[Rfam]
RNA sequence: CCAGUGUUCCGGGGUCGGUGAGAUUCCGAACCGGCGGUGAGAGUCCGCGAGCCGCGCUCACGCGUGGUUGAGCAGGUGGAACUCCUGCACCGACGGUGAUGGGCGCCCGCGCUCGAGUCCGGAUGAGAGGAACGCGAA
Numbered sequence: 001c002c003a004g005u006g007u008u009c010c011g012g013g014g015u016c017g018g019u020g021a022g023a024u025u026c027c028g029a030a031c032c033g034g035c036g037g038u039g040a041g042a043g044u045c046c047g048c049g050a051g052c053c054g055c056g057c058u059c060a061c062g063c064g065u066g067g068u069u070g071a072g073c074a075g076g077u078g079g080a081a082c083u084c085c086u087g088c089a090c091c092g093a094c095g096g097u098g099a100u101g102g103g104c105g106c107c108c109g110c111g112c113u114c115g116a117g118u119c120c121g122g123a124u125g126a127g128a129g130g131a132a133c134g135c136g137a138a
Stems, first nucleotide, its partner, number of pairs: 004135007016028003032092002034048004043090002051068003072088005094121003
Dot-bracket structure: ...(((((((.....(((.......)))...((((((.....[[))))..(((............)))...(((((.......)))))]])).(((......................))).......)))))))...